[Rfam]
RNA sequence: UGUAUUCAUUACCGGGAUACACCUGUGCUCGCUUUGAAGUUUGAAACUAACAAUAUGAUAUCAGUGAACACAGCUGGUGGUAUCUCAGUAAUAAAUCACAU
Numbered sequence: 001u002g003u004a005u006u007c008a009u010u011a012c013c014g015g016g017a018u019a020c021a022c023c024u025g026u027g028c029u030c031g032c033u034u035u036g037a038a039g040u041u042u043g044a045a046a047c048u049a050a051c052a053a054u055a056u057g058a059u060a061u062c063a064g065u066g067a068a069c070a071c072a073g074c075u076g077g078u079g080g081u082a083u084c085u086c087a088g089u090a091a092u093a094a095a096u097c098a099c100a101u
Stems, first nucleotide, its partner, number of pairs: 008092005015086001016084002019081002021078002023073003027069001029067005
RNA: mir-317 microRNA precursor family
Organism: Eumeta japonica